[Rfam]
RNA sequence: CUGCGUAAACCUGUUGUCCCGGAGGAAGUGGCUGGAAAGCGAACUGCGCGAAGCGGGUCCGGCCGGCGCUGGCCGGCUCCCGCGAGUCGGCGCCCGGAGGCACUAAGCGCGGGGGGCGUAUGCUAGCAUGUUCUCCCU
Numbered sequence: 001c002u003g004c005g006u007a008a009a010c011c012u013g014u015u016g017u018c019c020c021g022g023a024g025g026a027a028g029u030g031g032c033u034g035g036a037a038a039g040c041g042a043a044c045u046g047c048g049c050g051a052a053g054c055g056g057g058u059c060c061g062g063c064c065g066g067c068g069c070u071g072g073c074c075g076g077c078u079c080c081c082g083c084g085a086g087u088c089g090g091c092g093c094c095c096g097g098a099g100g101c102a103c104u105a106a107g108c109g110c111g112g113g114g115g116g117c118g119u120a121u122g123c124u125a126g127c128a129u130g131u132u133c134u135c136c137c138u
Stems, first nucleotide, its partner, number of pairs: 003110004013103002016101003019097001021095002027045003031040003046093004050088002053083005059076007111138006119130004
Psudomonas sRNA P2: a 138-nucleotide sequence from Pseudomonas paraeruginosa.